Source information:
mir-14 microRNA precursor family: a 64-nucleotide sequence from Cephus cinctus. For this family Rfam cites "Direct sequencing and expression analysis of a large number of miRNAs in Aedes aegypti and a multi-species survey of novel mosquito miRNAs" (Li et al., BMC Genomics, 2009). The base pairs follow the family's consensus structure, which was predicted with RNAalifold. Its family is annotated with RISC complex and miRNA-mediated post-transcriptional gene silencing in the Gene Ontology.
RNA sequence: AGUGGGGGUGAGAAAUGGACUCGGCUAUAUUUAUGUAACAGUCAGUCUUUUUCUCUCUCCUAUC
Numbered sequence: 001a002g003u004g005g006g007g008g009u010g011a012g013a014a015a016u017g018g019a020c021u022c023g024g025c026u027a028u029a030u031u032u033a034u035g036u037a038a039c040a041g042u043c044a045g046u047c048u049u050u051u052u053c054u055c056u057c058u059c060c061u062a063u064c
Base pairs, nucleotide, nucleotide: 002063003062004061005060006059007058008057010055011054012053013052015050017048018047019046020045021044024042025041026040028038
Dot-bracket structure: .(((((((.((((.(.(((((..(((.(.........).))).))))).).)))).))))))).